[Rfam]
The record is an 87-nucleotide sequence from Solanum tuberosum, which matches "MIR8024 microRNA precursor family" in Rfam.
The family has 2 seed sequences and 661 matches in Rfam 15.1.
It scores 76 bits against the family's covariance model.
The source organism's lineage runs through Eukaryota, Viridiplantae, Mesangiospermae, Gunneridae and Solanum.
RNA sequence: UUGGAGGAUUUGAAGACUUCAACUUGUAUACUUGAAUAAUUUAAAGACUUUAACUUACAUAUUUGAAGGAUUUGAAAUCUUAUAACA
Numbered sequence: 001u002u003g004g005a006g007g008a009u010u011u012g013a014a015g016a017c018u019u020c021a022a023c024u025u026g027u028a029u030a031c032u033u034g035a036a037u038a039a040u041u042u043a044a045a046g047a048c049u050u051u052a053a054c055u056u057a058c059a060u061a062u063u064u065g066a067a068g069g070a071u072u073u074g075a076a077a078u079c080u081u082a083u084a085a086c087a
Stems, first nucleotide, its partner, number of pairs: 001085003004081003009076006017068005025059004032053005